RNA sequence: UGAUAGCUAUGAAGCGUGAGGUUGCUGCACAUGUUGCAGGUUUUCCGUGGAGCGAAUGUCAGUGGCGGAUAUAUGUUCCGCCGAUAAUAUUGACGACAA
Numbered sequence: 001u002g003a004u005a006g007c008u009a010u011g012a013a014g015c016g017u018g019a020g021g022u023u024g025c026u027g028c029a030c031a032u033g034u035u036g037c038a039g040g041u042u043u044u045c046c047g048u049g050g051a052g053c054g055a056a057u058g059u060c061a062g063u064g065g066c067g068g069a070u071a072u073a074u075g076u077u078c079c080g081c082c083g084a085u086a087a088u089a090u091u092g093a094c095g096a097c098a099a
Stems, first nucleotide, its partner, number of pairs: 014048003018045004025039005057098004064082006
Shown here is a 99-nucleotide RNA sequence, a member of the family "S10-Clostridia ribosomal protein leader". The family's RNA type in Rfam is cis-regulatory leader. The sequence is in the family's curated seed alignment.